[Rfam]
RNA sequence: ACCUUAUUAAGAGUGGUGGAGGGAAUAGGCCCUGUGAAGCCCAGCAACCGAUAACUUUUAGUUAUGAGGUGCUAAAUCCUACAGAAUGUAAAUUCUGAAAGAUGAGGU
Numbered sequence: 001a002c003c004u005u006a007u008u009a010a011g012a013g014u015g016g017u018g019g020a021g022g023g024a025a026u027a028g029g030c031c032c033u034g035u036g037a038a039g040c041c042c043a044g045c046a047a048c049c050g051a052u053a054a055c056u057u058u059u060a061g062u063u064a065u066g067a068g069g070u071g072c073u074a075a076a077u078c079c080u081a082c083a084g085a086a087u088g089u090a091a092a093u094u095c096u097g098a099a100a101g102a103u104g105a106g107g108u
Base pairs, nucleotide, nucleotide: 001108002107003106004105005104006103007102008101013042015041016040017039021032022031023030026081027080028079029078043073044072045071046070048069049068051065052064053063054062077100082097083096084095085094086093087092
Rfam assigns this 108-nucleotide RNA from Proteiniborus ethanoligenes to the family "SAM riboswitch aptamer (S box leader)".
The match comes from Rfam's covariance-model search (90 bits).
Taxonomically the source falls in Proteiniborus (Bacteria, Bacillati, Clostridia, Eubacteriales).